[Rfam]
RNA sequence: CUACUCCCUCCGUCCCAUAUUAUAAGAAUGUUUUUUACACUACACUAAUGUCAAAAACGUUCUUAUAUUAUGGGACGGAGGGAGUAC
Numbered sequence: 001c002u003a004c005u006c007c008c009u010c011c012g013u014c015c016c017a018u019a020u021u022a023u024a025a026g027a028a029u030g031u032u033u034u035u036u037a038c039a040c041u042a043c044a045c046u047a048a049u050g051u052c053a054a055a056a057a058c059g060u061u062c063u064u065a066u067a068u069u070a071u072g073g074g075a076c077g078g079a080g081g082g083a084g085u086a087c
Base pairs, nucleotide, nucleotide: 003085004084005083007081008080009079010078011077013075014074015073016072017071019069021067022066023065024064025063026062027061028060029059030058031057032056033055034054035053037051038050039049041047